[Rfam]
RNA sequence: AGCGACAAGGGCAAACCCGUCGAGAGGCGGGGACGCAAAGCCACGGGACCACCAAGGUCAGCCGGGCUGCCGACU
Numbered sequence: 001a002g003c004g005a006c007a008a009g010g011g012c013a014a015a016c017c018c019g020u021c022g023a024g025a026g027g028c029g030g031g032g033a034c035g036c037a038a039a040g041c042c043a044c045g046g047g048a049c050c051a052c053c054a055a056g057g058u059c060a061g062c063c064g065g066g067c068u069g070c071c072g073a074c075u
Stems, first nucleotide, its partner, number of pairs: 001075001003072002011036002016031006034061001039068004044064003047059003
The family of this 75-nucleotide sequence from Actinotalea ferrariae is "c-di-GMP-I-GGC riboswitch aptamer". A search with the family's covariance model found it, with a score of 73 bits. The family's consensus secondary structure is taken from published work.